[Rfam]
Shown here is a 120-nucleotide RNA sequence from Lapidilactobacillus dextrinicus, a member of the family "Ribosomal protein L20 leader". A search with the family's covariance model found it, with a score of 65 bits. The source organism's lineage runs through Bacteria, Bacillota, Bacilli, Lactobacillales and Lapidilactobacillus dextrinicus. By type it is a cis-regulatory leader. A reference for the family is Zengel and Lindahl (1994), "Diverse mechanisms for regulating ribosomal protein synthesis in Escherichia coli", Prog Nucleic Acid Res Mol Biol.
RNA sequence: UGAAUUAAGCAGAAGUUCCCGCUUCUCACCUAAGCUCUUAAGCCUCUAGGUUAAUACGUUAGUUAAUUUGCUGAUGAAUUGAUACUGCGGGUGCUUUUGCGCCCGCAGUUUUUGCAUGGG
Number, nucleotide and partner (000 for none) at each position: 001u000002g000003a000004a000005u000006u000007a000008a000009g000010c000011a026012g025013a024014a023015g022016u021017u000018c000019c000020c000021g016022c015023u014024u013025c012026u011027c000028a051029c050030c049031u000032a000033a045034g044035c042036u041037c000038u000039u000040a000041a036042g035043c000044c034045u033046c000047u000048a000049g030050g029051u028052u000053a000054a000055u000056a000057c000058g000059u000060u000061a000062g000063u000064u000065a000066a000067u000068u000069u000070g000071c000072u000073g000074a000075u000076g000077a000078a000079u000080u000081g000082a000083u000084a000085c000086u107087g106088c105089g104090g103091g102092u101093g100094c099095u000096u000097u000098u000099g094100c093101g092102c091103c090104c089105g088106c087107a086108g000109u000110u000111u000112u000113u000114g000115c000116a000117u000118g000119g000120g000